[Rfam]
RNA sequence: CGACUGUGGUGAUGAUGACGACUCUAGUCUUCGCCCUGAAAGCGUACCGUGUGGGCCUUCAGUCACUACCUCAUCUGAACAGUCC
Numbered sequence: 001c002g003a004c005u006g007u008g009g010u011g012a013u014g015a016u017g018a019c020g021a022c023u024c025u026a027g028u029c030u031u032c033g034c035c036c037u038g039a040a041a042g043c044g045u046a047c048c049g050u051g052u053g054g055g056c057c058u059u060c061a062g063u064c065a066c067u068a069c070c071u072c073a074u075c076u077g078a079a080c081a082g083u084c085c
Stems, first nucleotide, its partner, number of pairs: 002084006
RNA: Small nucleolar RNA SNORD11B